The family of this 73-nucleotide sequence from Photinus pyralis is "mir-10 microRNA precursor family". A search with the family's covariance model found it, with a score of 55 bits. On this family, see Lee and Ambros, Science 2001: "An extensive class of small RNAs in Caenorhabditis elegans".
RNA sequence: UAGCCGGAACCCGUAGAUCCGAACUUGUGUCGUUGUUUCUUAUCACAAGUUUGUAUUUACAGGAACCUGCUGG
Numbered sequence: 001u002a003g004c005c006g007g008a009a010c011c012c013g014u015a016g017a018u019c020c021g022a023a024c025u026u027g028u029g030u031c032g033u034u035g036u037u038u039c040u041u042a043u044c045a046c047a048a049g050u051u052u053g054u055a056u057u058u059a060c061a062g063g064a065a066c067c068u069g070c071u072g073g
Stems, first nucleotide, its partner, number of pairs: 002071003006067002010063002015058004020053010

The base pairs follow the family's consensus structure, which was predicted with PFOLD.